[Rfam]
Nucleotides: 061
Base pairs, nucleotide, nucleotide: 001021002020003019004018010036011035012034013033014032015031016030
Number, partner (000 for none) and nucleotide at each position: 001021c002020g003019g004018g005000u006000u007000g008000c009000c010036g011035a012034g013033u014032u015031g016030g017000c018004c019003c020002c021001g022000a023000u024000u025000g026000a027000a028000g029000u030016c031015c032014a033013a034012c035011u036010c037000u038000u039000u040000c041000g042000u043000u044000u045000a046000u047000a048000a049000a050000g051000g052000u053000a054000a055000u056000a057000u058000c059000a060000u061000g
The family of this 61-nucleotide RNA is "DUF2815 RNA". It is one of the family's seed sequences. By type it is a small RNA.